[Rfam]
RNA sequence: AAUUGGCAAAGAUGAUGAAUCAAUUAGAUGUGUGAAUGGAGCUUAAUCUAUACUGAACUCAACUUUUUUGAGGCAUUGUAUUGUCUGAUUUGCUUAUU
Numbered sequence: 001a002a003u004u005g006g007c008a009a010a011g012a013u014g015a016u017g018a019a020u021c022a023a024u025u026a027g028a029u030g031u032g033u034g035a036a037u038g039g040a041g042c043u044u045a046a047u048c049u050a051u052a053c054u055g056a057a058c059u060c061a062a063c064u065u066u067u068u069u070g071a072g073g074c075a076u077u078g079u080a081u082u083g084u085c086u087g088a089u090u091u092g093c094u095u096a097u098u
Stems, first nucleotide, its partner, number of pairs: 001098003005094006
A member of the RNA family "Small nucleolar RNA Z266" from Salix dunnii, 98 nucleotides long. Rfam classes the family as a C/D-box small nucleolar RNA. The base pairs follow the family's consensus structure, which was predicted with PFOLD. Taxonomically the source falls in Salix (Eukaryota, Euphyllophyta, Spermatophyta, Saliceae). It scores 75 bits against the family's covariance model. The literature on the family includes a 2003 paper in Nucleic Acids Res by Chen et al., "The high diversity of snoRNAs in plants: identification and comparative study of 120 snoRNA genes from Oryza sativa". Its family is annotated with RNA processing and nucleolus in the Gene Ontology.